RNA sequence: GGCUCUAAUGCUUGCUUUAGGGGCUACCAACUGUGGUACGUGUUACCAUGAUUAUGGUCCUUGGGAAGGUCUGAGACUAAGGUCAUCAACCCCCUAGCAGGGGGCACCCAGAAAUCGGGGGUGGGGGCUGAGAAUCUUGCCCCUGAGUAAUGACUGUUGCAUGAGAUGUCCACCAUGGAUUGAUGCACCAUUGCCCUGGGUUGUAAUCUCCCAUGACCAGCUUGUAAGUGUAAUUUGCAAGGUGGCUUGUGAGCCAUAACUCAAUUCAGACUACUCUAGAGCC
Numbered sequence: 001g002g003c004u005c006u007a008a009u010g011c012u013u014g015c016u017u018u019a020g021g022g023g024c025u026a027c028c029a030a031c032u033g034u035g036g037u038a039c040g041u042g043u044u045a046c047c048a049u050g051a052u053u054a055u056g057g058u059c060c061u062u063g064g065g066a067a068g069g070u071c072u073g074a075g076a077c078u079a080a081g082g083u084c085a086u087c088a089a090c091c092c093c094c095u096a097g098c099a100g101g102g103g104g105c106a107c108c109c110a111g112a113a114a115u116c117g118g119g120g121g122u123g124g125g126g127g128c129u130g131a132g133a134a135u136c137u138u139g140c141c142c143c144u145g146a147g148u149a150a151u152g153a154c155u156g157u158u159g160c161a162u163g164a165g166a167u168g169u170c171c172a173c174c175a176u177g178g179a180u181u182g183a184u185g186c187a188c189c190a191u192u193g194c195c196c197u198g199g200g201u202u203g204u205a206a207u208c209u210c211c212c213a214u215g216a217c218c219a220g221c222u223u224g225u226a227a228g229u230g231u232a233a234u235u236u237g238c239a240a241g242g243u244g245g246c247u248u249g250u251g252a253g254c255c256a257u258a259a260c261u262c263a264a265u266u267c268a269g270a271c272u273a274c275u276c277u278a279g280a281g282c283c
Stems, first nucleotide, its partner, number of pairs: 001283002005279003012239001019062005034048005071269005081218004090104005105120001107118002110115001121214007140200003242257006
Dot-bracket structure: ((..(((....[......(((((..........(((((.....))))).........)))))........(((((.....((((.....(((((.....)))))(.((.(....).)).)(((((((............(((.......................................................))).......)))))))))))....................]..((((((....)))))).......))))).......)))..))
Source information
This 283-nucleotide RNA sequence from Dreissena polymorpha belongs to the Rfam family "Nuclear RNase P". Rfam classes the family as a ribozyme. Its family is annotated with ribonuclease P complex, tRNA processing and ribonuclease P activity in the Gene Ontology.